The family of this 46-nucleotide RNA sequence from Acanthaster planci is "Histone 3' UTR stem-loop". The family's RNA type in Rfam is cis-regulatory element. A search with the family's covariance model found it, with a score of 34 bits. Rfam 15.1 lists 44,596 matches to the family in 976 species.
RNA sequence: UCACCGGUUCUUCUCAGAACCACACCUCUUCCCAAAAGAGAAUUCU
Number, nucleotide and partner (000 for none) at each position: 001u000002c000003a000004c000005c000006g021007g020008u019009u018010c017011u016012u000013c000014u000015c000016a011017g010018a009019a008020c007021c006022a000023c000024a000025c000026c000027u000028c000029u000030u000031c000032c000033c000034a000035a000036a000037a000038g000039a000040g000041a000042a000043u000044u000045c000046u000